[Rfam]
RNA sequence: CCUUGCGCCUGAAAGGGCGACGGCGUCGAGCCGGAGCGGGAAGUCAGCAGAGGCCAUAGUAGGCGAGGCGCGAGCCGGACCGAAGGGC
Numbered sequence: 001c002c003u004u005g006c007g008c009c010u011g012a013a014a015g016g017g018c019g020a021c022g023g024c025g026u027c028g029a030g031c032c033g034g035a036g037c038g039g040g041a042a043g044u045c046a047g048c049a050g051a052g053g054c055c056a057u058a059g060u061a062g063g064c065g066a067g068g069c070g071c072g073a074g075c076c077g078g079a080c081c082g083a084a085g086g087g088c
Stems, first nucleotide, its partner, number of pairs: 001023001003022001006019005044051002053088003062081002067076003
Source information: Group II catalytic intron D1-D4-1: an 88-nucleotide sequence from Azospirillum thermophilum. Taxonomically the source falls in Azospirillum (Bacteria, Pseudomonadota, Alphaproteobacteria, Rhodospirillales). The base pairs follow the family's consensus structure. Rfam 15.1 lists 2,508 matches to the family in 1,144 species. Rfam's curators write: Group II introns are found in rRNA, tRNA and mRNA of organelles in fungi, plants and protists, and also in mRNA in bacteria.